RNA sequence: UUUUAUCUUCAGGGUCAGGUGAAAUUCCUAAUCGGUGGUAAAGCCCACGAGCGAAAGCAGAACUAGUUAGAUUCUAGUGCCGACAGUUAAAGUCUGGAUAAAAGAAGAUGUUU
Numbered sequence: 001u002u003u004u005a006u007c008u009u010c011a012g013g014g015u016c017a018g019g020u021g022a023a024a025u026u027c028c029u030a031a032u033c034g035g036u037g038g039u040a041a042a043g044c045c046c047a048c049g050a051g052c053g054a055a056a057g058c059a060g061a062a063c064u065a066g067u068u069a070g071a072u073u074c075u076a077g078u079g080c081c082g083a084c085a086g087u088u089a090a091a092g093u094c095u096g097g098a099u100a101a102a103a104g105a106a107g108a109u110g111u112u113u
Stems, first nucleotide, its partner, number of pairs: 004110007017029003031093002033082002035048004043080002051058002062078005084096003